[Rfam]
RNA sequence: UCCGGUCCUCGGUAGUGGCCCCCGACACCGCACCAGCGUUGCGUGGGCCUCGAUCGAAGACCGUG
Dot-bracket structure: (.(((((.(((((...(((((.((..((.(......)))..)).)))))...))))).))))).)
RNA: Actino-pnp RNA
Organism: Sanguibacter sp. HDW7